RNA sequence: GUGUCAGCGUAUCUGAGUGGUUACUUUUAUGAGCUCUUGUUUAUGCUUACUAUUCCUAGUGGACUCUGGUUCGAACCACUGGCGAUGUCUGAUGUUUUA
Numbered sequence: 001g002u003g004u005c006a007g008c009g010u011a012u013c014u015g016a017g018u019g020g021u022u023a024c025u026u027u028u029a030u031g032a033g034c035u036c037u038u039g040u041u042u043a044u045g046c047u048u049a050c051u052a053u054u055c056c057u058a059g060u061g062g063a064c065u066c067u068g069g070u071u072c073g074a075a076c077c078a079c080u081g082g083c084g085a086u087g088u089c090u091g092a093u094g095u096u097u098u099a
Stems, first nucleotide, its partner, number of pairs: 002094006013082003017079004025075003029071001